[Rfam]
RNA sequence: AUGAAUUUUUAUUUUUUUGAUUAAAGAGAAAUUGCUCGAUUGUUAGAUUUAACGAAGAAAAUCAGAACCCAAUACGUUAGGGCUCAAUUUCCUUGAAAAUCCU
Numbered sequence: 001a002u003g004a005a006u007u008u009u010u011a012u013u014u015u016u017u018u019g020a021u022u023a024a025a026g027a028g029a030a031a032u033u034g035c036u037c038g039a040u041u042g043u044u045a046g047a048u049u050u051a052a053c054g055a056a057g058a059a060a061a062u063c064a065g066a067a068c069c070c071a072a073u074a075c076g077u078u079a080g081g082g083c084u085c086a087a088u089u090u091c092c093u094u095g096a097a098a099a100u101c102c103u
Base pairs, nucleotide, nucleotide: 013027014026015025016024017023031062032061033060036057041054042053043052044051045050079093080092081091082090
Heliobacter pylori small RNA HPnc0580: a 103-nucleotide RNA sequence from Gossypium mustelinum. Taxonomically the source falls in Gossypium (Eukaryota, Streptophytina, Mesangiospermae, malvids). A reference for the family is Sharma et al. (2010), "The primary transcriptome of the major human pathogen Helicobacter pylori", Nature. Rfam 15.1 lists 29 matches to the family in 21 species.